[Rfam]
RNA sequence: UAAAUUGAAUGCAAAUGACUUCAUAUAUCCUCGAUAAUAUGGUUCGAAAGUUUCUACCAGAUCACCGUAAAUGAUUUGACUAUGAAGGCAGAUAAUUCUGUU
Numbered sequence: 001u002a003a004a005u006u007g008a009a010u011g012c013a014a015a016u017g018a019c020u021u022c023a024u025a026u027a028u029c030c031u032c033g034a035u036a037a038u039a040u041g042g043u044u045c046g047a048a049a050g051u052u053u054c055u056a057c058c059a060g061a062u063c064a065c066c067g068u069a070a071a072u073g074a075u076u077u078g079a080c081u082a083u084g085a086a087g088g089c090a091g092a093u094a095a096u097u098c099u100g101u102u
Base pairs, nucleotide, nucleotide: 019087020086021085022084023083024082025081031047032046033045034044058078059077060076061075062074063073064072